Nucleotides: 070
Stems, first nucleotide, its partner, number of pairs: 002069002005066002
Number, partner (000 for none) and nucleotide at each position: 001000c002069c003068u004000c005066u006065c007000u008000g009000u010000g011000a012000u013000g014000a015000g016000a017000c018000c019000c020000u021000u022000u023000u024000c025000a026000c027000a028000g029000a030000c031000c032000u033000g034000u035000a036000c037000u038000g039000a040000a041000c042000u043000c044000u045000g046000u047000g048000a049000g050000g051000a052000u053000a054000a055000g056000a057000a058000a059000c060000u061000c062000u063000g064000a065006g066005g067000a068003g069002g070000c
Small nucleolar RNA SNORD25: a 70-nucleotide RNA sequence from Ovis aries. Clan: SNORD25 clan. The literature on the family includes a 2001 paper in Nucleic Acids Res by Qu et al., "Identification of 10 novel snoRNA gene clusters from Arabidopsis thaliana". It scores 41 bits against the family's covariance model. Gene Ontology terms of the family: nucleolus and RNA processing. Pairs were carried over by alignment from the consensus structure, which was predicted with PFOLD.